[Rfam]
RNA: Small nucleolar RNA SNORD35
RNA sequence: UGGUUAUGAUGUUCAAACUCACGAUGGUCUGCAGAGUCCCCCGGCCGAGGGGCUGCUGACAAUGCCUCUGGCAUCUACUGAACCAGGGGC
Numbered sequence: 001u002g003g004u005u006a007u008g009a010u011g012u013u014c015a016a017a018c019u020c021a022c023g024a025u026g027g028u029c030u031g032c033a034g035a036g037u038c039c040c041c042c043g044g045c046c047g048a049g050g051g052g053c054u055g056c057u058g059a060c061a062a063u064g065c066c067u068c069u070g071g072c073a074u075c076u077a078c079u080g081a082a083c084c085a086g087g088g089g090c
Stems, first nucleotide, its partner, number of pairs: 001085004